RNA: Bacterial small subunit ribosomal RNA, nucleotides 1 to 551
RNA sequence: UUUAUGGAGAGUUUGAUCCUGGCUCAGGACGAACGCUGGCGGCGUGCUUAACACAUGCAAGUCGAACGGGGUUUAGUCGAAAGUUUACUUUUAGCUAAACCUAGUGGCGGACGGGUGAGUAACGCGUGGAUAACCUGCCCAAUAGCCUGGGAUAACGCCGGGAAACUGGUGCUAAUACCGGAUACGUUCAUUGGACUGCAUAGUUCGAUGAAGAAAGGUGUAAACCGCUACUGGAUGGGUCCGCGUCCCAUUAGCUAGUUGGUAGGGUAACGGCCUACCAAGGCGACGAUGGGUAGCCGGCCUGAGAGGGCGACCGGCCACACUGGAACUGAGACACGGUCCAGACUCCUACGGGAGGCAGCAGUGGGGAAUCUUCCGCAAUGGGCGCAAGCCUGACGGAGCAACGCCGCGUGAGUGACGAAGGUCUUCGGAUUGUAAAACUCUGUCCAAAGGGAAGAAACAAAUGACGGUACCUUUGGAGGAAGCCCCGGCUAACUACGUGCCAGCAGCCGCGGUAAAACGUAGGGGGCAAGCGUUGUCCGGAAUUACUG
Numbered sequence: 001u002u003u004a005u006g007g008a009g010a011g012u013u014u015g016a017u018c019c020u021g022g023c024u025c026a027g028g029a030c031g032a033a034c035g036c037u038g039g040c041g042g043c044g045u046g047c048u049u050a051a052c053a054c055a056u057g058c059a060a061g062u063c064g065a066a067c068g069g070g071g072u073u074u075a076g077u078c079g080a081a082a083g084u085u086u087a088c089u090u091u092u093a094g095c096u097a098a099a100c101c102u103a104g105u106g107g108c109g110g111a112c113g114g115g116u117g118a119g120u121a122a123c124g125c126g127u128g129g130a131u132a133a134c135c136u137g138c139c140c141a142a143u144a145g146c147c148u149g150g151g152a153u154a155a156c157g158c159c160g161g162g163a164a165a166c167u168g169g170u171g172c173u174a175a176u177a178c179c180g181g182a183u184a185c186g187u188u189c190a191u192u193g194g195a196c197u198g199c200a201u202a203g204u205u206c207g208a209u210g211a212a213g214a215a216a217g218g219u220g221u222a223a224a225c226c227g228c229u230a231c232u233g234g235a236u237g238g239g240u241c242c243g244c245g246u247c248c249c250a251u252u253a254g255c256u257a258g259u260u261g262g263u264a265g266g267g268u269a270a271c272g273g274c275c276u277a278c279c280a281a282g283g284c285g286a287c288g289a290u291g292g293g294u295a296g297c298c299g300g301c302c303u304g305a306g307a308g309g310g311c312g313a314c315c316g317g318c319c320a321c322a323c324u325g326g327a328a329c330u331g332a333g334a335c336a337c338g339g340u341c342c343a344g345a346c347u348c349c350u351a352c353g354g355g356a357g358g359c360a361g362c363a364g365u366g367g368g369g370a371a372u373c374u375u376c377c378g379c380a381a382u383g384g385g386c387g388c389a390a391g392c393c394u395g396a397c398g399g400a401g402c403a404a405c406g407c408c409g410c411g412u413g414a415g416u417g418a419c420g421a422a423g424g425u426c427u428u429c430g431g432a433u434u435g436u437a438a439a440a441c442u443c444u445g446u447c448c449a450a451a452g453g454g455a456a457g458a459a460a461c462a463a464a465u466g467a468c469g470g471u472a473c474c475u476u477u478g479g480a481g482g483a484a485g486c487c488c489c490g491g492c493u494a495a496c497u498a499c500g501u502g503c504c505a506g507c508a509g510c511c512g513c514g515g516u517a518a519a520a521c522g523u524a525g526g527g528g529g530c531a532a533g534c535g536u537u538g539u540c541c542g543g544a545a546u547u548a549c550u551g
Stems, first nucleotide, its partner, number of pairs: 009025005027541004032537006039410006045403002047368001052366003056363003061108003066105002069101002080091004115321003124246008134238002139234003143230003147181004156171006187212007195204003217226003247293003254284003259281008296318004300311004323344005346357004374400001376399003382395005413443004423434004447482001448478006457468001485530005496525005506513002